[Rfam]
RNA sequence: AUGGGUACCUGUAGAGAACCAACCAUGUGGACAAAGAAUAUCCCAGGCAACACACCGCAGUGUUCCUACAUAAACACGGAGGUCUCUGUCUGACUUUGGACAGCCACUAAGUCAGAUCGUUCCCUCCAUACAGU
Numbered sequence: 001a002u003g004g005g006u007a008c009c010u011g012u013a014g015a016g017a018a019c020c021a022a023c024c025a026u027g028u029g030g031a032c033a034a035a036g037a038a039u040a041u042c043c044c045a046g047g048c049a050a051c052a053c054a055c056c057g058c059a060g061u062g063u064u065c066c067u068a069c070a071u072a073a074a075c076a077c078g079g080a081g082g083u084c085u086c087u088g089u090c091u092g093a094c095u096u097u098g099g100a101c102a103g104c105c106a107c108u109a110a111g112u113c114a115g116a117u118c119g120u121u122c123c124c125u126c127c128a129u130a131c132a133g134u
Base pairs, nucleotide, nucleotide: 004066005065009060010059011058012057026052027051028050030048032046078127079126080125081124082123086119088117089116090115092113093112094111095110096109098107
Overview: The record is a 134-nucleotide sequence from Erinaceus europaeus, which matches "Small Cajal body specific RNA 3" in Rfam. The family's consensus secondary structure was predicted with RNAalifold. A reference for the family is Darzacq et al. (2002), "Cajal body-specific small nuclear RNAs: a novel class of 2'-O-methylation and pseudouridylation guide RNAs", EMBO J. About the family: scaRNAs are a specific class of small nuclear RNAs which localise to the Cajal bodies and guide the modification of RNA polymerase II transcribed spliceosomal RNAs U1, U2, U4, U5 and U12.